RNA sequence: UUUUAAUGCGUUAAGGGUUGAAGUGAUAUCCUUUUUUUGGUGGCGCCUAAGCCAAAAAAAGAUAAAACGGAAAACCUGACCUGAA
Numbered sequence: 001u002u003u004u005a006a007u008g009c010g011u012u013a014a015g016g017g018u019u020g021a022a023g024u025g026a027u028a029u030c031c032u033u034u035u036u037u038u039g040g041u042g043g044c045g046c047c048u049a050a051g052c053c054a055a056a057a058a059a060a061g062a063u064a065a066a067a068c069g070g071a072a073a074a075c076c077u078g079a080c081c082u083g084a085a
Base pairs, nucleotide, nucleotide: 014077015076016075018073019072023068024067028063029062030061034058035057036056037055038054039053040052041051
RNA: Flavo-1 RNA